[Rfam]
Notes: This 215-nucleotide RNA sequence from Ambrosiozyma monospora belongs to the Rfam family "Small nucleolar RNA snR43". A reference for the family is Balakin et al. (1996), "The RNA world of the nucleolus: two major families of small RNAs defined by different box elements with related functions", Cell. The match comes from Rfam's covariance-model search (117 bits). The family is grouped with related families in Rfam's "SNORA9 clan". The family's RNA type in Rfam is H/ACA-box small nucleolar RNA.

RNA sequence: CACUCCUGUUUCUGCCUCAUAUUCUUACUCUUCCAUAGGAUGAUGGGUCUUGUUAUGGAGAAGAUAAAGCCCUUGGAUCCAGUCACAACUUGAUUUGAUACUUCUACCGUGGUUGGUUUCAAGGGAUCGUGUGAAUGCUUCCCCUCUUCUAUUCUCUUUUAGUUGGUUUAAGUAACUGCCAGAGAAGCCUUGGGUUACCGGAGCUCACUACAUUU
Numbered sequence: 001c002a003c004u005c006c007u008g009u010u011u012c013u014g015c016c017u018c019a020u021a022u023u024c025u026u027a028c029u030c031u032u033c034c035a036u037a038g039g040a041u042g043a044u045g046g047g048u049c050u051u052g053u054u055a056u057g058g059a060g061a062a063g064a065u066a067a068a069g070c071c072c073u074u075g076g077a078u079c080c081a082g083u084c085a086c087a088a089c090u091u092g093a094u095u096u097g098a099u100a101c102u103u104c105u106a107c108c109g110u111g112g113u114u115g116g117u118u119u120c121a122a123g124g125g126a127u128c129g130u131g132u133g134a135a136u137g138c139u140u141c142c143c144c145u146c147u148u149c150u151a152u153u154c155u156c157u158u159u160u161a162g163u164u165g166g167u168u169u170a171a172g173u174a175a176c177u178g179c180c181a182g183a184g185a186a187g188c189c190u191u192g193g194g195u196u197a198c199c200g201g202a203g204c205u206c207a208c209u210a211c212a213u214u215u
Base pairs, nucleotide, nucleotide: 003060004059005058006057016047017046018045019044020042021041022040023039024038025037070125071124072123073122074121075120076119077118079116080115081114082113083112084111085110086109131208132207133206134205137204138203139202140201141200151195152194153193154192